This 72-nucleotide sequence from Blautia sp. CAG:37 belongs to the Rfam family "c-di-GMP-I riboswitch aptamer".
It scores 47 bits against the family's covariance model.
Rfam links the family to the GO term cyclic-di-GMP binding.
GEMM was predicted in a large-scale screen for bacterial structured RNA regulatory elements.
Taxonomically the source falls in Blautia (Bacteria, Bacillati, Clostridia, Lachnospirales).
[Rfam]
RNA sequence: AAAGAAUCUCGGCAAAGCAGUCGAAAGGCUGUGACGCAAAGCUACAAGGCCUGUAAAAUGGCAGCCAGUUGC
Number, nucleotide and partner (000 for none) at each position: 001a000002a000003a000004g000005a000006a000007u000008c000009u000010c000011g000012g037013c036014a000015a000016a000017g032018c031019a030020g029021u028022c027023g000024a000025a000026a000027g022028g021029c020030u019031g018032u017033g000034a000035c000036g013037c012038a000039a000040a070041g069042c068043u067044a000045c000046a000047a000048g065049g062050c061051c060052u000053g000054u000055a000056a000057a000058a000059u000060g051061g050062c049063a000064g000065c048066c000067a043068g042069u041070u040071g000072c000